[Rfam]
RNA sequence: GCAUAGAAGGUCUGUGGUUGUAAGUCCAGGCCAGUCGCAGGCAAAAGGACCCACGUAAGUUAGCAAAAAAGUUGCUAUCGAUCAUGGUGCGGCUUAGAGGUAAGACCUGCCGGGUAUACCGAGAGAGGUAAUAGUAAGGCAACCCCGAGCGAACCCUCCAGCAGGCGAGUGUGGGGUCAAAGACCAGGUCAGCUUCACUGU
Numbered sequence: 001g002c003a004u005a006g007a008a009g010g011u012c013u014g015u016g017g018u019u020g021u022a023a024g025u026c027c028a029g030g031c032c033a034g035u036c037g038c039a040g041g042c043a044a045a046a047g048g049a050c051c052c053a054c055g056u057a058a059g060u061u062a063g064c065a066a067a068a069a070a071g072u073u074g075c076u077a078u079c080g081a082u083c084a085u086g087g088u089g090c091g092g093c094u095u096a097g098a099g100g101u102a103a104g105a106c107c108u109g110c111c112g113g114g115u116a117u118a119c120c121g122a123g124a125g126a127g128g129u130a131a132u133a134g135u136a137a138g139g140c141a142a143c144c145c146c147g148a149g150c151g152a153a154c155c156c157u158c159c160a161g162c163a164g165g166c167g168a169g170u171g172u173g174g175g176g177u178c179a180a181a182g183a184c185c186a187g188g189u190c191a192g193c194u195u196c197a198c199u200g201u
Stems, first nucleotide, its partner, number of pairs: 001201003006196004012192003015186005028172001030170001031041001033094007050087002055082001059079001061077005085179001106165005111121003125158004134150002